[Rfam]
RNA sequence: UUCACUCAUGACUGUACGUCACUUUGGAUAAAAGUGUCUGCUAAAUUUGAUAUA
Numbered sequence: 001u002u003c004a005c006u007c008a009u010g011a012c013u014g015u016a017c018g019u020c021a022c023u024u025u026g027g028a029u030a031a032a033a034g035u036g037u038c039u040g041c042u043a044a045a046u047u048u049g050a051u052a053u054a
Base pairs, nucleotide, nucleotide: 013043014041015040016039020036021035022034023033024032025031